[Rfam]
Nucleotides: 170
Base pairs, nucleotide, nucleotide: 018075020073022071023070024069027066029064030063033057034056038052039051040050041049042048043047099164101162102161103160104159105158106157107156119148121146123144124143126141
Number, partner (000 for none) and nucleotide at each position: 001000c002000c003000c004000u005000u006000g007000u008000u009000g010000u011000u012000a013000a014000g015000c016000a017000g018075u019000g020073u021000g022071c023070u024069a025000a026000a027066a028000g029064u030063a031000c032000a033057a034056a035000a036000a037000g038052c039051a040050g041049g042048a043047u044000c045000a046000u047043g048042u049041c050040u051039u052038g053000g054000a055000u056034u057033u058000u059000u060000u061000a062000a063030u064029a065000a066027u067000g068000c069024u070023a071022g072000g073020a074000g075018a076000g077000u078000a079000c080000a081000c082000a083000a084000a085000a086000g087000a088000a089000g090000a091000a092000a093000a094000g095000u096000a097000g098000c099164u100000g101162c102161g103160u104159u105158g106157g107156a108000c109000c110000c111000c112000a113000a114000a115000g116000a117000c118000u119148g120000g121146g122000g123144u124143g125000a126141a127000c128000u129000g130000c131000u132000u133000u134000c135000u136000u137000a138000a139000u140000g141126u142000c143124c144123a145000g146121u147000g148119u149000c150000u151000u152000a153000a154000u155000a156107u157106u158105u159104g160103g161102u162101g163000a164099a165000a166000u167000a168000u169000g170000u
A member of the RNA family "Small nucleolar RNA SNORA81" from Peromyscus maniculatus, 170 nucleotides long.
The family's RNA type in Rfam is H/ACA-box small nucleolar RNA.
The base pairs follow the family's consensus structure, which was predicted with WAR.
Taxonomically the source falls in Peromyscus maniculatus (Eukaryota, Eumetazoa, Sarcopterygii, Theria).